[Rfam]
RNA sequence: AGACGUUCUCGGGGCGGGGCGAAAAUCCCCACCGGCGGUAAGCAGGGAGAGCCUGUAAAGCCCGCGAGCGCCCGGCAAGCCCUCGCCGGGGUCAGCAGAUUCGGUGAGAUGCCGAAGCCGACGGUCAUAGUCCGGAUGAAAGAGAACGGGA
Numbered sequence: 001a002g003a004c005g006u007u008c009u010c011g012g013g014g015c016g017g018g019g020c021g022a023a024a025a026u027c028c029c030c031a032c033c034g035g036c037g038g039u040a041a042g043c044a045g046g047g048a049g050a051g052c053c054u055g056u057a058a059a060g061c062c063c064g065c066g067a068g069c070g071c072c073c074g075g076c077a078a079g080c081c082c083u084c085g086c087c088g089g090g091g092u093c094a095g096c097a098g099a100u101u102c103g104g105u106g107a108g109a110u111g112c113c114g115a116a117g118c119c120g121a122c123g124g125u126c127a128u129a130g131u132c133c134g135g136a137u138g139a140a141a142g143a144g145a146a147c148g149g150g151a
Stems, first nucleotide, its partner, number of pairs: 004148007017029003031131002033120002035065004060118002068096002100116005122134003